This 153-nucleotide RNA sequence from Brassica carinata belongs to the Rfam family "MIR9563 microRNA precursor family".
NCBI's taxonomy places the organism under Eukaryota, Streptophyta, Streptophytina, Euphyllophyta, Brassica.
Rfam 15.1 lists 5,832 matches to the family in 9 species.
The match comes from Rfam's covariance-model search (98 bits).

RNA sequence: AAAAUAUAAGAAAUCGUCUCUUAACUUUUAACUUAAAAAGUUAAGAACCGGCUCUUAAAUAAGAUAUUCUGCUAAUAAUCGGUUCUUAGCUUUUUAAGAGCCGGUUAUUAGUUUUUUUUUAGUUAAAAGUUAAGAGACGGUUUCUUAUAUUUC
Numbered sequence: 001a002a003a004a005u006a007u008a009a010g011a012a013a014u015c016g017u018c019u020c021u022u023a024a025c026u027u028u029u030a031a032c033u034u035a036a037a038a039a040g041u042u043a044a045g046a047a048c049c050g051g052c053u054c055u056u057a058a059a060u061a062a063g064a065u066a067u068u069c070u071g072c073u074a075a076u077a078a079u080c081g082g083u084u085c086u087u088a089g090c091u092u093u094u095u096a097a098g099a100g101c102c103g104g105u106u107a108u109u110a111g112u113u114u115u116u117u118u119u120u121a122g123u124u125a126a127a128a129g130u131u132a133a134g135a136g137a138c139g140g141u142u143u144c145u146u147a148u149a150u151u152u153c
Stems, first nucleotide, its partner, number of pairs: 002152032035119005041111004046106014